[Rfam]
RNA sequence: CCAGCCGACACAUAUCGAAGUAUGUCCUCAGCCGAGGUAGUCUGCGAGGUAGAGCUACCGAUUGGAUGUCCCGCCUCCGAGAGGAGUCGGCCAUGCUGUCAAACUCCAAACUUGCAGACGCCGUAGACGCUGGGAAUCCGGACUGCGGGGUAAGCCUGUGGUCCAUGAGGGAGACAACCCAGAGCAGGGUUAAGGUCCCCAAGUGUGGAUUAAGUGCAACUGAAGGUUGUCUCGAGCCCUAAACAGCCGGGAGGUGAGCUUAGAAGCAGCUACCCUCUAAGAAAAGCGUAAUAGCUUACCGGCCGAGGUUCGAGGCGCCCAAAAUGAUCGGGGCUCAAAUCCACCACCGAGACCCUGCAAUACUUAUUAUCAAGUAACUUCGUAGGCUUGGCGUACUGACCGGAUGGAAGUACGGGCGAGAGCUCGUAUGGACCGCUCAGUAACGAUAAU
Numbered sequence: 001c002c003a004g005c006c007g008a009c010a011c012a013u014a015u016c017g018a019a020g021u022a023u024g025u026c027c028u029c030a031g032c033c034g035a036g037g038u039a040g041u042c043u044g045c046g047a048g049g050u051a052g053a054g055c056u057a058c059c060g061a062u063u064g065g066a067u068g069u070c071c072c073g074c075c076u077c078c079g080a081g082a083g084g085a086g087u088c089g090g091c092c093a094u095g096c097u098g099u100c101a102a103a104c105u106c107c108a109a110a111c112u113u114g115c116a117g118a119c120g121c122c123g124u125a126g127a128c129g130c131u132g133g134g135a136a137u138c139c140g141g142a143c144u145g146c147g148g149g150g151u152a153a154g155c156c157u158g159u160g161g162u163c164c165a166u167g168a169g170g171g172a173g174a175c176a177a178c179c180c181a182g183a184g185c186a187g188g189g190u191u192a193a194g195g196u197c198c199c200c201a202a203g204u205g206u207g208g209a210u211u212a213a214g215u216g217c218a219a220c221u222g223a224a225g226g227u228u229g230u231c232u233c234g235a236g237c238c239c240u241a242a243a244c245a246g247c248c249g250g251g252a253g254g255u256g257a258g259c260u261u262a263g264a265a266g267c268a269g270c271u272a273c274c275c276u277c278u279a280a281g282a283a284a285a286g287c288g289u290a291a292u293a294g295c296u297u298a299c300c301g302g303c304c305g306a307g308g309u310u311c312g313a314g315g316c317g318c319c320c321a322a323a324a325u326g327a328u329c330g331g332g333g334c335u336c337a338a339a340u341c342c343a344c345c346a347c348c349g350a351g352a353c354c355c356u357g358c359a360a361u362a363c364u365u366a367u368u369a370u371c372a373a374g375u376a377a378c379u380u381c382g383u384a385g386g387c388u389u390g391g392c393g394u395a396c397u398g399a400c401c402g403g404a405u406g407g408a409a410g411u412a413c414g415g416g417c418g419a420g421a422g423c424u425c426g427u428a429u430g431g432a433c434c435g436c437u438c439a440g441u442a443a444c445g446a447u448a449a450u
Stems, first nucleotide, its partner, number of pairs: 001391003004387003011024005027134006036122003040119008052107001053105002060100003064096001066094003073088001075086004140164009169180003184358007194348003203345001205344006225319003229316010246303005252276003257271003277281001282297001286295002359380002361376005392445001394442006401435003410429008